A member of the RNA family "Bacterial RNase P class A" from Neisseria animalis, 452 nucleotides long.
Its family is annotated with ribonuclease P activity, dimeric ribonuclease P complex and tRNA processing in the Gene Ontology.

RNA sequence: CCGCUCGGACAGACAGUCGCUGCGUAUCGCGUAAGGCAUACGGGGAGGAAAGUCCGGGCUCCAAAGAGCAGAAUGCCGGCUAACGGCCGGGCGCGGUAACGCGACGGAAAGUGGAACAGAGAGCAGAACCGCCGAUGGUUCACGUUGCAGCCUUUUGAGUCAUUACAAGGCAGCCAACCGCAGGUUGUAUAGGCAGUACGGCACGGCUGGCGCAGUAGGGCGCAAAAGGCUGCAACGUGAGCACAGGUAAGGGUGAAAAGGUGCGGUAAGAGCGCACCGUGCGGCUGGUAACAGUCCGCAGCAGGCUAAACCCCAUUCGGAGCAAGACCAAACAGAACGCAUUGACGCUGCUCGCCGAGCGUUCGGGUAGGUUGCUGGAGCGUGCCGGUAACGGUUCGCCUAGAGGAAUGACUGUCCGACGACAGAACCCGGCUUAUCGUCUGAACGGUGUG
Numbered sequence: 001c002c003g004c005u006c007g008g009a010c011a012g013a014c015a016g017u018c019g020c021u022g023c024g025u026a027u028c029g030c031g032u033a034a035g036g037c038a039u040a041c042g043g044g045g046a047g048g049a050a051a052g053u054c055c056g057g058g059c060u061c062c063a064a065a066g067a068g069c070a071g072a073a074u075g076c077c078g079g080c081u082a083a084c085g086g087c088c089g090g091g092c093g094c095g096g097u098a099a100c101g102c103g104a105c106g107g108a109a110a111g112u113g114g115a116a117c118a119g120a121g122a123g124c125a126g127a128a129c130c131g132c133c134g135a136u137g138g139u140u141c142a143c144g145u146u147g148c149a150g151c152c153u154u155u156u157g158a159g160u161c162a163u164u165a166c167a168a169g170g171c172a173g174c175c176a177a178c179c180g181c182a183g184g185u186u187g188u189a190u191a192g193g194c195a196g197u198a199c200g201g202c203a204c205g206g207c208u209g210g211c212g213c214a215g216u217a218g219g220g221c222g223c224a225a226a227a228g229g230c231u232g233c234a235a236c237g238u239g240a241g242c243a244c245a246g247g248u249a250a251g252g253g254u255g256a257a258a259a260g261g262u263g264c265g266g267u268a269a270g271a272g273c274g275c276a277c278c279g280u281g282c283g284g285c286u287g288g289u290a291a292c293a294g295u296c297c298g299c300a301g302c303a304g305g306c307u308a309a310a311c312c313c314c315a316u317u318c319g320g321a322g323c324a325a326g327a328c329c330a331a332a333c334a335g336a337a338c339g340c341a342u343u344g345a346c347g348c349u350g351c352u353c354g355c356c357g358a359g360c361g362u363u364c365g366g367g368u369a370g371g372u373u374g375c376u377g378g379a380g381c382g383u384g385c386c387g388g389u390a391a392c393g394g395u396u397c398g399c400c401u402a403g404a405g406g407a408a409u410g411a412c413u414g415u416c417c418g419a420c421g422a423c424a425g426a427a428c429c430c431g432g433c434u435u436a437u438c439g440u441c442u443g444a445a446c447g448g449u450g451u452g
Stems, first nucleotide, its partner, number of pairs: 001448003005444006011437001012416007020045002023042005050435003054432005059322004066353004071318005076090005091105001092103004106313002111311002113307002129252002131248003136243002139240001260278006279302001280300005285294003326373004335364006347355002380399003384395004
Pairs were carried over by alignment from the consensus structure, which is taken from published work.
Rfam classes the family as a ribozyme.